c-di-GMP-I riboswitch aptamer: a 92-nucleotide RNA sequence from Bacillus oleivorans. Pairs were carried over by alignment from the consensus structure, which is taken from published work. Taxonomically the source falls in Bacillus (Bacteria, Bacilli, Caryophanales, Bacillaceae).

[Rfam]
RNA sequence: AACGUAAUAGGGCAAACUUACUGAAAGGUAAGGACGCAAAGCCACGGGCCUACUGUCAUCUUCCCAAUGACUAUGGCAGCCGGGUUGCCGAA
Numbered sequence: 001a002a003c004g005u006a007a008u009a010g011g012g013c014a015a016a017c018u019u020a021c022u023g024a025a026a027g028g029u030a031a032g033g034a035c036g037c038a039a040a041g042c043c044a045c046g047g048g049c050c051u052a053c054u055g056u057c058a059u060c061u062u063c064c065c066a067a068u069g070a071c072u073a074u075g076g077c078a079g080c081c082g083g084g085u086u087g088c089c090g091a092a
Base pairs, nucleotide, nucleotide: 012037013036017032018031019030020029021028022027040086041085042084043083045082046081047080048077049076050075055071056070057069058068